A member of the RNA family "Small nucleolar RNA SNORA68" from Albula glossodonta, 135 nucleotides long. Gene Ontology terms of the family: nucleolus and RNA processing. For this family Rfam cites "The family of box ACA small nucleolar RNAs is defined by an evolutionarily conserved secondary structure and ubiquitous sequence elements essential for RNA accumulation" (Ganot et al., Genes Dev, 1997). The organism belongs to Albula, within Eukaryota. Rfam classes the family as an H/ACA-box small nucleolar RNA.

RNA sequence: UGUGCACACAAAACCCAAAGGUCAUAAUUAACAUCAAUAAUAUGAUCUUGUCUGGUGUGCAGAUACGAAGGGAGUACCUUGUCGCCUUUCAGAUCGCUCCCGUGCAUCUGAAAGUGAAGUCAAGGUUCUACAGUU
Numbered sequence: 001u002g003u004g005c006a007c008a009c010a011a012a013a014c015c016c017a018a019a020g021g022u023c024a025u026a027a028u029u030a031a032c033a034u035c036a037a038u039a040a041u042a043u044g045a046u047c048u049u050g051u052c053u054g055g056u057g058u059g060c061a062g063a064u065a066c067g068a069a070g071g072g073a074g075u076a077c078c079u080u081g082u083c084g085c086c087u088u089u090c091a092g093a094u095c096g097c098u099c100c101c102g103u104g105c106a107u108c109u110g111a112a113a114g115u116g117a118a119g120u121c122a123a124g125g126u127u128c129u130a131c132a133g134u135u
Stems, first nucleotide, its partner, number of pairs: 003061007020047007027038003074128001076126005086114009096105002